[Rfam]
Shown here is a 115-nucleotide sequence from Streptomyces sp. NRRL B-3648, a member of the family "Streptomyces-metK RNA".
NCBI's taxonomy places the organism under Bacteria, Actinomycetota, Actinomycetes, Streptomycetaceae, Streptomyces.
It is annotated as a small RNA.

RNA sequence: GCGAGACGGUGGCCAGCCGACCGGGUGUGCCCGAUAAACUGUUCACGGUCGGCGCCAGGCGCAGCCCAGCGCCGACCGCAAAUGAUCAGCCAGCAGCCGCUGCAACCACAGGGAG
Numbered sequence: 001g002c003g004a005g006a007c008g009g010u011g012g013c014c015a016g017c018c019g020a021c022c023g024g025g026u027g028u029g030c031c032c033g034a035u036a037a038a039c040u041g042u043u044c045a046c047g048g049u050c051g052g053c054g055c056c057a058g059g060c061g062c063a064g065c066c067c068a069g070c071g072c073c074g075a076c077c078g079c080a081a082a083u084g085a086u087c088a089g090c091c092a093g094c095a096g097c098c099g100c101u102g103c104a105a106c107c108a109c110a111g112g113g114a115g
Stems, first nucleotide, its partner, number of pairs: 047077006055071001056069001058067002091102004